[Rfam]
RNA sequence: GUGAGAGGAAGCUCAUUGUAGAGGUCACGCACAGAGUGCAUGUCACUCCGCAUAUACCUCGGGGAAGGUCUGAGACAAGAGCCAAUGGUUACCCUUGCAGGGUAUCACCUGAUGAGGGUGAGCGAGUGAACAGAAAAGUCGGGCCAACGCGUGCUGUCUGAACAGGAGAAGCUAGAGGGGGCAGUUUCUCAGCCCCCCUAGUGGAUGUGCAGCACGCUGGUUUGGAAUCACUCGCGGCUGGCAAUUGAGUCCGAUGUAUGAGGUGGGGCACAGCUCCAGAACCCAAUUCAGACUACUCUCCUCUCAC
Numbered sequence: 001g002u003g004a005g006a007g008g009a010a011g012c013u014c015a016u017u018g019u020a021g022a023g024g025u026c027a028c029g030c031a032c033a034g035a036g037u038g039c040a041u042g043u044c045a046c047u048c049c050g051c052a053u054a055u056a057c058c059u060c061g062g063g064g065a066a067g068g069u070c071u072g073a074g075a076c077a078a079g080a081g082c083c084a085a086u087g088g089u090u091a092c093c094c095u096u097g098c099a100g101g102g103u104a105u106c107a108c109c110u111g112a113u114g115a116g117g118g119u120g121a122g123c124g125a126g127u128g129a130a131c132a133g134a135a136a137a138g139u140c141g142g143g144c145c146a147a148c149g150c151g152u153g154c155u156g157u158c159u160g161a162a163c164a165g166g167a168g169a170a171g172c173u174a175g176a177g178g179g180g181g182c183a184g185u186u187u188c189u190c191a192g193c194c195c196c197c198c199u200a201g202u203g204g205a206u207g208u209g210c211a212g213c214a215c216g217c218u219g220g221u222u223u224g225g226a227a228u229c230a231c232u233c234g235c236g237g238c239u240g241g242c243a244a245u246u247g248a249g250u251c252c253g254a255u256g257u258a259u260g261a262g263g264u265g266g267g268g269c270a271c272a273g274c275u276c277c278a279g280a281a282c283c284c285a286a287u288u289c290a291g292a293c294u295a296c297u298c299u300c301c302u303c304u305c306a307c
Stems, first nucleotide, its partner, number of pairs: 001307004007301003012262005021060004034048005070291005080239004090104005105121006122235007143221003264278006
RNA: Nuclear RNase P
Organism: Menidia menidia